[Rfam]
The record is an 85-nucleotide RNA from Nothobranchius furzeri, which matches "mir-221 microRNA precursor family" in Rfam. Its family is annotated with RISC complex and miRNA-mediated post-transcriptional gene silencing in the Gene Ontology. On this family, see Yao et al., J Virol 2008: "MicroRNA profile of Marek's disease virus-transformed T-cell line MSB-1: predominance of virus-encoded microRNAs". The base pairs follow the family's consensus structure, which was predicted with RNAalifold.
RNA sequence: UCUCUCCAGAACCUGGCAUACAGUGUAGAUUCCUGUGUGGUUCAGUUCUACAGCUACAUUGUCUGCUGGGUUUCUGGCUGGCAAC
Numbered sequence: 001u002c003u004c005u006c007c008a009g010a011a012c013c014u015g016g017c018a019u020a021c022a023g024u025g026u027a028g029a030u031u032c033c034u035g036u037g038u039g040g041u042u043c044a045g046u047u048c049u050a051c052a053g054c055u056a057c058a059u060u061g062u063c064u065g066c067u068g069g070g071u072u073u074c075u076g077g078c079u080g081g082c083a084a085c
Stems, first nucleotide, its partner, number of pairs: 013069006020062009033053004